[Rfam]
RNA sequence: GUUUAUCCUCAGCUCUGAGAACUGAAUUCCAUGGGUUGUGUCAACGUCAGACCUGUGAGGUUCAGUUCUUCAGCUGGGAUAGCUCUG
Numbered sequence: 001g002u003u004u005a006u007c008c009u010c011a012g013c014u015c016u017g018a019g020a021a022c023u024g025a026a027u028u029c030c031a032u033g034g035g036u037u038g039u040g041u042c043a044a045c046g047u048c049a050g051a052c053c054u055g056u057g058a059g060g061u062u063c064a065g066u067u068c069u070u071c072a073g074c075u076g077g078g079a080u081a082g083c084u085c086u087g
Stems, first nucleotide, its partner, number of pairs: 008078002011075003018069008033054004
About this RNA
A member of the RNA family "mir-146 microRNA precursor family" from Microtus ochrogaster, 87 nucleotides long. The organism belongs to Microtus, within Eukaryota. On this family, see Cai et al., Proc Natl Acad Sci U S A 2005: "Kaposi's sarcoma-associated herpesvirus expresses an array of viral microRNAs in latently infected cells". Rfam links the family to the GO terms miRNA-mediated post-transcriptional gene silencing and RISC complex.